Description:
Rfam assigns this 113-nucleotide sequence from Paspalum vaginatum to the family "Small nucleolar RNA snoR97". The literature on the family includes a 2002 paper in Curr Biol by Marker et al., "Experimental RNomics: identification of 140 candidates for small non-messenger RNAs in the plant Arabidopsis thaliana". The family's consensus secondary structure was predicted with WAR. Rfam 15.1 lists 862 matches to the family in 223 species.
RNA sequence: UUUUCCUGAGUUGCGCGGAGGCUGACAAACUCGGAGAGCCUGUGUUGUCAUCAGCUUCGUCUCUGCUUAUUAUACCUUCCGUAAGAUGGGAGUUAAAUAGCAGCAAGAGAUUC
Numbered sequence: 001u002u003u004u005c006c007u008g009a010g011u012u013g014c015g016c017g018g019a020g021g022c023u024g025a026c027a028a029a030c031u032c033g034g035a036g037a038g039c040c041u042g043u044g045u046u047g048u049c050a051u052c053a054g055c056u057u058c059g060u061c062u063c064u065g066c067u068u069a070u071u072a073u074a075c076c077u078u079c080c081g082u083a084a085g086a087u088g089g090g091a092g093u094u095a096a097a098u099a100g101c102a103g104c105a106a107g108a109g110a111u112u113c
Base pairs, nucleotide, nucleotide: 041107043105044104045103046102047101053094054093055092056091057090058089060086061085062084